[Rfam]
This 88-nucleotide RNA from Sedimentibacter saalensis belongs to the Rfam family "c-di-GMP-I riboswitch aptamer".
Taxonomically the source falls in Sedimentibacter (Bacteria, Bacillati, Bacillota, Tissierellia).
RNA sequence: UAACUUAACAUGCAAAAUUUUCAAAAGAAAAUGACGCAAAGCUAAAGGGCCUAAAUUGCUAAAAACAAUAUGGCAGCCAGUUGCUGUA
Numbered sequence: 001u002a003a004c005u006u007a008a009c010a011u012g013c014a015a016a017a018u019u020u021u022c023a024a025a026a027g028a029a030a031a032u033g034a035c036g037c038a039a040a041g042c043u044a045a046a047g048g049g050c051c052u053a054a055a056u057u058g059c060u061a062a063a064a065a066c067a068a069u070a071u072g073g074c075a076g077c078c079a080g081u082u083g084c085u086g087u088a
Stems, first nucleotide, its partner, number of pairs: 012037002017032006040082004047078002049074003056068003